[Rfam]
RNA sequence: AGCAACCGGCAGGGCGUGGCAGUCGAUCAUCGAAUGCUGCACGCGCCUUUCCCCGGUUGCG
Dot-bracket structure: .(((((.....((((((((((((((.....))...))))).))))))).......))))).
A member of the RNA family "gabT RNA" from Pseudomonas sp. GV071, 61 nucleotides long.